[Rfam]
RNA sequence: GCUUUAACAUGGGGGUACCUGCUACGUAAUAAAAAGUAAGUGCUUCCAUGUUUCAGUGG
Number, nucleotide and partner (000 for none) at each position: 001g057002c056003u055004u000005u000006a052007a051008c050009a049010u048011g047012g046013g045014g044015g043016u042017a041018c040019c000020u038021g037022c036023u035024a000025c000026g000027u000028a000029a000030u000031a000032a000033a000034a000035a023036g022037u021038a020039a000040g018041u017042g016043c015044u014045u013046c012047c011048a010049u009050g008051u007052u006053u000054c000055a003056g002057u001058g000059g000